[Rfam]
RNA sequence: GGCUAGUCCAAUGGUAGUGGGUUAUCAGAACUUGCUAACAUAAGUGUUACUAAAGCUGGCAUACAACCCCCCAAUAUUAAAUUUGACUGGCUUAAA
Numbered sequence: 001g002g003c004u005a006g007u008c009c010a011a012u013g014g015u016a017g018u019g020g021g022u023u024a025u026c027a028g029a030a031c032u033u034g035c036u037a038a039c040a041u042a043a044g045u046g047u048u049a050c051u052a053a054a055g056c057u058g059g060c061a062u063a064c065a066a067c068c069c070c071c072c073a074a075u076a077u078u079a080a081a082u083u084u085g086a087c088u089g090g091c092u093u094a095a096a
Stems, first nucleotide, its partner, number of pairs: 001092008010084002015079001016075001018073004033061003037057001

A member of the RNA family "Y RNA" from Propithecus coquereli, 96 nucleotides long. It is annotated as a non-coding RNA gene.